Overview:
Rfam assigns this 73-nucleotide sequence from uncultured Faecalibacterium sp. to the family "HDV ribozyme from F. prausnitzii". NCBI's taxonomy places the organism under Bacteria, Bacillota, Eubacteriales, Oscillospiraceae, Faecalibacterium.

RNA sequence: GUUACUCUGAUAAUCACACACCUCUCCGUGGUGGGCAGCAGGCAACGAUCUUAAGAUCGGCUGAGAUGUGAUU
Numbered sequence: 001g002u003u004a005c006u007c008u009g010a011u012a013a014u015c016a017c018a019c020a021c022c023u024c025u026c027c028g029u030g031g032u033g034g035g036c037a038g039c040a041g042g043c044a045a046c047g048a049u050c051u052u053a054a055g056a057u058c059g060g061c062u063g064a065g066a067u068g069u070g071a072u073u
Stems, first nucleotide, its partner, number of pairs: 001039003005035003020032003046059005